Annotation
The family of this 132-nucleotide sequence from Streptococcus urinalis is "FMN riboswitch aptamer (RFN element)". Gene Ontology term of the family: FMN binding.

RNA sequence: AACUGUCUUCAGGGCAGGGUGAAAUUCCCGACCGGCGGUGAUUGAUAUCAUAAAAGUCAAAAGUCCGCGAGCAAAAGCUGAUGUGGUGAAAAUCCACAACCGACAGUAAAGUCUGGAUGGGAGGAGACCGGG
Numbered sequence: 001a002a003c004u005g006u007c008u009u010c011a012g013g014g015c016a017g018g019g020u021g022a023a024a025u026u027c028c029c030g031a032c033c034g035g036c037g038g039u040g041a042u043u044g045a046u047a048u049c050a051u052a053a054a055a056g057u058c059a060a061a062a063g064u065c066c067g068c069g070a071g072c073a074a075a076a077g078c079u080g081a082u083g084u085g086g087u088g089a090a091a092a093u094c095c096a097c098a099a100c101c102g103a104c105a106g107u108a109a110a111g112u113c114u115g116g117a118u119g120g121g122a123g124g125a126g127a128c129c130g131g132g
Stems, first nucleotide, its partner, number of pairs: 003130001005128006017029003031112002033102002035068004063100002071078002082098005104115003

The source organism's lineage runs through Bacteria, Bacillati, Lactobacillales, Streptococcus and Streptococcus urinalis.